[Rfam]
RNA sequence: ACAGGGUUAUGACCUAUGAAUUGACAGCCAGUCUAUUUAAAAUUGCCUGUCAGUUCUAUAGGCCACUAUUCUAU
Dot-bracket structure: (.(((((..((.((((.((((((((((.(((...........))).))))))))))..)))).))..))))).)
Annotation: The family of this 74-nucleotide RNA from Callorhinchus milii is "mir-192/215 microRNA precursor family". It scores 73 bits against the family's covariance model. Rfam 15.1 lists 810 matches to the family in 628 species. Rfam links the family to the GO terms miRNA-mediated post-transcriptional gene silencing and RISC complex.